[Rfam]
RNA sequence: ACUGCGAGGAUCUUCGCAAUAUAGGGGAUCAACGGCAGGUUCAGGAUCAGAAGGAUCACGUUACCGAGAUACAUGGAGAUAAUCACCGCCCAGAAGAUCUCCGGCUGAUCGACCAUUAAACGUGGGCC
Numbered sequence: 001a002c003u004g005c006g007a008g009g010a011u012c013u014u015c016g017c018a019a020u021a022u023a024g025g026g027g028a029u030c031a032a033c034g035g036c037a038g039g040u041u042c043a044g045g046a047u048c049a050g051a052a053g054g055a056u057c058a059c060g061u062u063a064c065c066g067a068g069a070u071a072c073a074u075g076g077a078g079a080u081a082a083u084c085a086c087c088g089c090c091c092a093g094a095a096g097a098u099c100u101c102c103g104g105c106u107g108a109u110c111g112a113c114c115a116u117u118a119a120a121c122g123u124g125g126g127c128c
Base pairs, nucleotide, nucleotide: 003018004017005016006015007014008013026128027127029125030124031123033122034121038114039113040112043109046106048104050102052100053099054098056097057096061093062092068086073083074082
Rfam assigns this 128-nucleotide RNA sequence from Roseibium alexandrii to the family "Ruegeria cis8 sRNA". For this family Rfam cites "Experimental Identification of Small Non-Coding RNAs in the Model Marine Bacterium Ruegeria pomeroyi DSS-3" (Rivers et al., Front Microbiol, 2016). Lineage of the source: Bacteria > Pseudomonadati > Alphaproteobacteria > Hyphomicrobiales > Roseibium. It scores 88 bits against the family's covariance model.